The family of this 126-nucleotide RNA from Oceanobacillus profundus is "Salmonella enterica Typhi npcRNA 44".

[Rfam]
RNA sequence: CUUUAACAAUCCGGAACAAGCUGAAAAUUGAAACGACAUGUCGUCUCGUUCUUCCGUAAUAAAGAAUGAGGUUAAGACAUGUUCGAGUCUCUCAAAUUUUCAUAAUCUGAAGCGAAACAUCUUCGG
Numbered sequence: 001c002u003u004u005a006a007c008a009a010u011c012c013g014g015a016a017c018a019a020g021c022u023g024a025a026a027a028u029u030g031a032a033a034c035g036a037c038a039u040g041u042c043g044u045c046u047c048g049u050u051c052u053u054c055c056g057u058a059a060u061a062a063a064g065a066a067u068g069a070g071g072u073u074a075a076g077a078c079a080u081g082u083u084c085g086a087g088u089c090u091c092u093c094a095a096a097u098u099u100u101c102a103u104a105a106u107c108u109g110a111a112g113c114g115a116a117a118c119a120u121c122u123u124c125g126g
Stems, first nucleotide, its partner, number of pairs: 020103001023101007034085003037081006108125003112121001

The base pairs follow the family's consensus structure, which was predicted with CMfinder. A search with the family's covariance model found it, with a score of 76 bits.